[Rfam]
RNA sequence: GCUACCGUUACGGGAGAGUUUAGUUUUCCAGCUAACGCCGAAGGAGCAACCGCCCCGGAAACUCUCAGGCAAAUGAACCGUAACGGUAUU
Numbered sequence: 001g002c003u004a005c006c007g008u009u010a011c012g013g014g015a016g017a018g019u020u021u022a023g024u025u026u027u028c029c030a031g032c033u034a035a036c037g038c039c040g041a042a043g044g045a046g047c048a049a050c051c052g053c054c055c056c057g058g059a060a061a062c063u064c065u066c067a068g069g070c071a072a073a074u075g076a077a078c079c080g081u082a083a084c085g086g087u088a089u090u
Stems, first nucleotide, its partner, number of pairs: 006085008020035004037070003040066002044064003050058002
Source information: This 90-nucleotide RNA sequence from Saccharibacter sp. 17.LH.SD belongs to the Rfam family "Glycine riboswitch aptamer". Lineage of the source: Bacteria > Pseudomonadati > Alphaproteobacteria > Acetobacterales > Saccharibacter.